[Rfam]
RNA: Eukaryotic small subunit ribosomal RNA, nucleotides 22 to 615
RNA sequence: AGUCAUAUGCUUGUCUCAAAAAUUAGGCCAUGCAUGUGUAAGUUUGAACAAAUUCAGACUGUGAAACUGUGAAUUGCUCAUUAAAUCAGUUAUAGUUGGUUUGAUGGUAUUUGCUACUCAAAUAACCAUAGUAAUUCUAGAGCUAAUACGUGUAACAAACCUCGACUUCUAGAAGGGAUGCAUUUAUUAGAUAAAAGGUCGACGCAGGCUUCGCCCGUUGCUUUGAUCAACCAUGAUACCUCAACAAAUCACACGUCCUUUAUGCUGGCGACGCAUCAUUCAAAUUUUUGCCCUAUCAACUUUUGAUGGUAGGAUAGUGGCCUACUAUGGUGGUGAUGGGUGACGGAGAAUUAGGGUUUGAUUCCGGAGAGGGAGCUUGAAAAACGGCUACCACAUCCAAGGAAGGUAGUAGGCACGCAAAUUACCCAAUCCUAACACGGGGAGGUAGUGACAAAAACAACAAUACCAAGCUCUAUGAGUCUGGUAAUUAAAAUGAGUACAAUCUAAAUCCCUUAACGAGGAUCCAUUGGAGGGCAAGUGUGGUGCCAGCAGUCGCAGUAAUUCUAGCUCUAAUAGCGUAUAUUUAAGUUGUUG
Numbered sequence: 001a002g003u004c005a006u007a008u009g010c011u012u013g014u015c016u017c018a019a020a021a022a023u024u025a026g027g028c029c030a031u032g033c034a035u036g037u038g039u040a041a042g043u044u045u046g047a048a049c050a051a052a053u054u055c056a057g058a059c060u061g062u063g064a065a066a067c068u069g070u071g072a073a074u075u076g077c078u079c080a081u082u083a084a085a086u087c088a089g090u091u092a093u094a095g096u097u098g099g100u101u102u103g104a105u106g107g108u109a110u111u112u113g114c115u116a117c118u119c120a121a122a123u124a125a126c127c128a129u130a131g132u133a134a135u136u137c138u139a140g141a142g143c144u145a146a147u148a149c150g151u152g153u154a155a156c157a158a159a160c161c162u163c164g165a166c167u168u169c170u171a172g173a174a175g176g177g178a179u180g181c182a183u184u185u186a187u188u189a190g191a192u193a194a195a196a197g198g199u200c201g202a203c204g205c206a207g208g209c210u211u212c213g214c215c216c217g218u219u220g221c222u223u224u225g226a227u228c229a230a231c232c233a234u235g236a237u238a239c240c241u242c243a244a245c246a247a248a249u250c251a252c253a254c255g256u257c258c259u260u261u262a263u264g265c266u267g268g269c270g271a272c273g274c275a276u277c278a279u280u281c282a283a284a285u286u287u288u289u290g291c292c293c294u295a296u297c298a299a300c301u302u303u304u305g306a307u308g309g310u311a312g313g314a315u316a317g318u319g320g321c322c323u324a325c326u327a328u329g330g331u332g333g334u335g336a337u338g339g340g341u342g343a344c345g346g347a348g349a350a351u352u353a354g355g356g357u358u359u360g361a362u363u364c365c366g367g368a369g370a371g372g373g374a375g376c377u378u379g380a381a382a383a384a385c386g387g388c389u390a391c392c393a394c395a396u397c398c399a400a401g402g403a404a405g406g407u408a409g410u411a412g413g414c415a416c417g418c419a420a421a422u423u424a425c426c427c428a429a430u431c432c433u434a435a436c437a438c439g440g441g442g443a444g445g446u447a448g449u450g451a452c453a454a455a456a457a458c459a460a461c462a463a464u465a466c467c468a469a470g471c472u473c474u475a476u477g478a479g480u481c482u483g484g485u486a487a488u489u490a491a492a493a494u495g496a497g498u499a500c501a502a503u504c505u506a507a508a509u510c511c512c513u514u515a516a517c518g519a520g521g522a523u524c525c526a527u528u529g530g531a532g533g534g535c536a537a538g539u540g541u542g543g544u545g546c547c548a549g550c551a552g553u554c555g556c557a558g559u560a561a562u563u564c565u566a567g568c569u570c571u572a573a574u575a576g577c578g579u580a581u582a583u584u585u586a587a588g589u590u591g592u593u594g
Base pairs, nucleotide, nucleotide: 001584002583003582005581006580007579008578009577010576011575014456016454020449027414028413029412031411032410033409036070037069041068042067043066048062049061077369078368079367087290088289089288092285093284096283097282102278103277104276105275117152119150126142129139130138131137159179161177162176163175166172167171185238186237187236188235189234198227199226200225201224207215208214209213249271250270252268254267255266257264292340293339294338299331300330301329306328307327308326309325310324311323312322313321344366345365346364347363348359349358350357351356371392372391374389375388376387394405396403397402422447424446425445426444430442431441432440433439462489463488464486465485466484467483468482470480471479472478473477497517498516499514501513527573528572529571530570531569532568541566542565543564549556550555